Rfam assigns this 71-nucleotide RNA from Shigella sonnei to the family "Nucleoid-associated noncoding RNA 4 (CssrE)". The source organism's lineage runs through Bacteria, Gammaproteobacteria, Enterobacterales, Shigella and Shigella sonnei. In E. coli small RNA transcribed from repeated extragenic palindromic element (REP325) called nucleoid-associated ncRNA 4 (nRNA4) collaborates HU protein in condensing the DNA. The secondary structure but not the sequence of the RNA is important in nucleoid condensation. Also identified in Shigella as CssrE. It scores 71 bits against the family's covariance model.

[Rfam]
RNA sequence: GGUUGGAUAAGGCGUUUAUGCCGCAUCCGACAGCUAUCGCCGGAUGCGAUGCUGGCGCAUCUUAUCCGGCC
Numbered sequence: 001g002g003u004u005g006g007a008u009a010a011g012g013c014g015u016u017u018a019u020g021c022c023g024c025a026u027c028c029g030a031c032a033g034c035u036a037u038c039g040c041c042g043g044a045u046g047c048g049a050u051g052c053u054g055g056c057g058c059a060u061c062u063u064a065u066c067c068g069g070c071c
Base pairs, nucleotide, nucleotide: 002031003030004029005028006027007026008025011022012021013020014019039070040069041068042067043066044065045064046063048061049060050059051058052057